RNA: Arthropod 7SK RNA
Nucleotides: 264
Base pairs, nucleotide, nucleotide: 001222002221003220004219005218006217007216008215015089016088017087018086019085027074028073029072032069033068036067037066038065039064040062041061042060043059046056230254231253232252233249234248235247236246237245
Number, partner (000 for none) and nucleotide at each position: 001222g002221g003220a004219g005218g006217u007216g008215u009000g010000c011000g012000u013000c014000u015089g016088u017087g018086a019085u020000g021000g022000c023000a024000c025000a026000g027074c028073u029072g030000a031000a032069c033068a034000u035000c036067g037066a038065u039064c040062g041061c042060u043059u044000c045000a046056c047000u048000a049000u050000a051000c052000a053000a054000u055000a056046g057000u058000g059043g060042g061041g062040c063000u064039g065038a066037u067036c068033u069032g070000c071000u072029c073028a074027g075000u076000a077000c078000u079000c080000g081000u082000g083000a084000c085019g086018u087017c088016a089015c090000u091000u092000g093000g094000u095000c096000g097000a098000u099000c100000c101000a102000g103000c104000a105000a106000c107000c108000a109000u110000c111000u112000g113000g114000u115000c116000c117000a118000u119000g120000c121000c122000g123000a124000u125000g126000c127000c128000u129000c130000u131000g132000u133000c134000g135000c136000a137000c138000g139000g140000c141000c142000g143000a144000u145000c146000a147000c148000u149000g150000g151000u152000u153000a154000c155000u156000u157000g158000a159000a160000c161000g162000u163000c164000c165000g166000a167000a168000u169000a170000u171000u172000u173000c174000c175000a176000a177000a178000u179000u180000u181000c182000g183000a184000g185000g186000g187000u188000u189000u190000a191000c192000c193000g194000g195000a196000u197000g198000g199000g200000u201000u202000u203000c204000a205000a206000a207000a208000u209000a210000g211000a212000u213000u214000u215008g216007c217006a218005c219004c220003u221002c222001c223000a224000u225000u226000a227000a228000a229000c230254g231253g232252c233249a234248c235247u236246g237245c238000g239000g240000u241000u242000u243000c244000g245237g246236c247235a248234g249233u250000u251000u252232g253231c254230c255000c256000u257000u258000u259000u260000u261000u262000g263000u264000u